[Rfam]
RNA sequence: GUGCAAAUCGCCUGGUAUACUACUUGUAGGUAUGCGAAUAUAUAUCAGUCAGUAAUAUGCCUCCCCGGCAUAGCAGGAAGA
Numbered sequence: 001g002u003g004c005a006a007a008u009c010g011c012c013u014g015g016u017a018u019a020c021u022a023c024u025u026g027u028a029g030g031u032a033u034g035c036g037a038a039u040a041u042a043u044a045u046c047a048g049u050c051a052g053u054a055a056u057a058u059g060c061c062u063c064c065c066c067g068g069c070a071u072a073g074c075a076g077g078a079a080g081a
Base pairs, nucleotide, nucleotide: 019053020052021051024047026045027044028043030041031040032039033038057071058070059069060068061067

Description
A member of the RNA family "Bacteroides-1 RNA" from Bacteroides faecichinchillae, 81 nucleotides long. The family's RNA type in Rfam is small RNA.